Flavobacterium-1 RNA: a 124-nucleotide RNA sequence. It is annotated as a small RNA. Rfam's curators put it in the seed alignment.
Nucleotides: 124
Stems, first nucleotide, its partner, number of pairs: 001079005007072001009070001010045004015040002022032004048067002056063002082123002086120001088119006098107002
Number, partner (000 for none) and nucleotide at each position: 001079c002078c003077g004076a005075g006000a007072u008000a009070g010045g011044c012043g013042u014000a015040c016039a017000a018000a019000u020000c021000u022032u023031g024030c025029c026000a027000c028000u029025g030024g031023c032022a033000u034000u035000u036000c037000c038000c039016u040015g041000g042013a043012c044011g045010u046000u047000a048067g049066c050000g051000a052000u053000g054000a055000u056063g057062g058000g059000c060000a061000a062057c063056c064000u065000a066049g067048c068000g069000a070009c071000g072007a073000c074000g075005c076004u077003c078002g079001g080000c081000g082123u083122g084000u085000a086120g087000a088119g089118g090117u091116g092115g093114u094000g095000a096000a097000u098107u099106c100000c101000g102000a103000u104000u105000c106099g107098a108000a109000g110000g111000g112000a113000a114093a115092c116091c117090a118089c119088c120086c121000g122083c123082a124000c